RNA sequence: CAUGGAAGCUAGGGGUGUCUGGGGUAUAGCCGCAGACUGAGACAGUCCCUUGGAACCUGAACCGGAUCAUGCCGGCGGAGGGAAGCUUCAAGCACGCUUU
Number, nucleotide and partner (000 for none) at each position: 001c000002a000003u000004g000005g000006a088007a087008g086009c085010u084011a050012g049013g048014g047015g000016u044017g037018u036019c035020u034021g033022g000023g000024g000025u000026a000027u000028a000029g000030c000031c000032g000033c021034a020035g019036a018037c017038u000039g000040a000041g000042a000043c000044a016045g000046u000047c014048c013049c012050u011051u000052g000053g000054a000055a000056c081057c080058u079059g000060a000061a000062c075063c074064g073065g072066a000067u000068c000069a000070u000071g000072c065073c064074g063075g062076c000077g000078g000079a058080g057081g056082g000083a000084a010085g009086c008087u007088u006089c000090a000091a000092g000093c000094a000095c000096g000097c000098u000099u000100u000